[Rfam]
RNA sequence: UGAUGGGGUAGAGGCGCAAAAAAAAUCAGUACACAUUAGGAGCUAGAACAGCAAUGAGCGGUGUGGAAAGGUUUUUUUGCCGAAGCGAAAAGAAAUGUUCAGUUCUUUUUAGCUGGGUCGUCAUUGAAUAAAUGACGGACUGUCACAGGAAACUGUGGAGGACUACUAUGGAU
Numbered sequence: 001u002g003a004u005g006g007g008g009u010a011g012a013g014g015c016g017c018a019a020a021a022a023a024a025a026u027c028a029g030u031a032c033a034c035a036u037u038a039g040g041a042g043c044u045a046g047a048a049c050a051g052c053a054a055u056g057a058g059c060g061g062u063g064u065g066g067a068a069a070g071g072u073u074u075u076u077u078u079g080c081c082g083a084a085g086c087g088a089a090a091a092g093a094a095a096u097g098u099u100c101a102g103u104u105c106u107u108u109u110u111a112g113c114u115g116g117g118u119c120g121u122c123a124u125u126g127a128a129u130a131a132a133u134g135a136c137g138g139a140c141u142g143u144c145a146c147a148g149g150a151a152a153c154u155g156u157g158g159a160g161g162a163c164u165a166c167u168a169u170g171g172a173u
Base pairs, nucleotide, nucleotide: 007167008166009165010164011163016080017079018078019077020076021075022074023073024072032065033064034063035062036061037060084114085113086112088110089109090108091107092106094104095103115141116140118138119137120136121135122134123133124132125131143158144157145156146155147154148153
RNA: Lysine riboswitch aptamer
Organism: Shouchella oshimensis